[Rfam]
RNA sequence: AAACUAAAUGGCGAUGGAGCUCGCCAAAACCGCCUGCCAGUCCUAGCGUUGAUUGUAAAGACUGAAAAGCUGAUGGCUCCUACUUUCCU
Dot-bracket structure: .........[[[[..((((((]]]]......((.(...............................).))....)))))).........
Numbered sequence: 001a002a003a004c005u006a007a008a009u010g011g012c013g014a015u016g017g018a019g020c021u022c023g024c025c026a027a028a029a030c031c032g033c034c035u036g037c038c039a040g041u042c043c044u045a046g047c048g049u050u051g052a053u054u055g056u057a058a059a060g061a062c063u064g065a066a067a068a069g070c071u072g073a074u075g076g077c078u079c080c081u082a083c084u085u086u087c088c089u
Stems, first nucleotide, its partner, number of pairs: 010025004016080006032070002035067001
Rfam assigns this 89-nucleotide RNA sequence from Coleofasciculus sp. LEGE 07092 to the family "Fluoride riboswitch aptamer (crcB RNA motif)". On this family, see Baker et al., Science 2012: "Widespread genetic switches and toxicity resistance proteins for fluoride". The base pairs follow the family's consensus structure, which is taken from published work. A search with the family's covariance model found it, with a score of 48 bits.